RNA sequence: UAAUCGCAAAGCAUGUUGCCGAAGACAGUAGGUGCCGCAAGGCAUAAAGGGAAACCACCUACCGAGGACGAGAUGAAACUGAUUUAUCAGACCUUCUUUGUCUUCCGCAAAGAAGGUCUUUUCUUUUGACUU
Number, nucleotide and partner (000 for none) at each position: 001u000002a000003a000004u000005c000006g000007c000008a000009a000010a000011g000012c000013a000014u000015g000016u000017u000018g000019c000020c000021g000022a000023a000024g000025a000026c000027a000028g062029u061030a060031g059032g058033u057034g043035c042036c041037g000038c000039a000040a000041g036042g035043c034044a000045u000046a000047a000048a000049g000050g000051g000052a000053a000054a000055c000056c000057a033058c032059c031060u030061a029062c028063c000064g000065a000066g000067g000068a000069c000070g000071a000072g000073a000074u000075g000076a000077a000078a000079c000080u000081g000082a000083u000084u000085u000086a000087u000088c000089a000090g000091a117092c116093c115094u114095u113096c112097u111098u110099u109100g108101u000102c000103u000104u000105c000106c000107g000108c100109a099110a098111a097112g096113a095114a094115g093116g092117u091118c000119u000120u000121u000122u000123c000124u000125u000126u000127u000128g000129a000130c000131u000132u000
This 132-nucleotide RNA sequence from Lachnospiraceae bacterium XBD2001 belongs to the Rfam family "Ribosomal protein L10 leader".
About the family: This family is a putative r-protein leader autoregulatory structure found in B. subtilis and other low-GC Gram-positive bacteria. It is located in the 5' untranslated regions of mRNAs encoding ribosomal proteins L10 and L12 (rplJ-rplL). A Rho-independent transcription terminator structure that is probably involved in regulation is included at the 3' end.
The base pairs follow the family's consensus structure, which was predicted with CMfinder.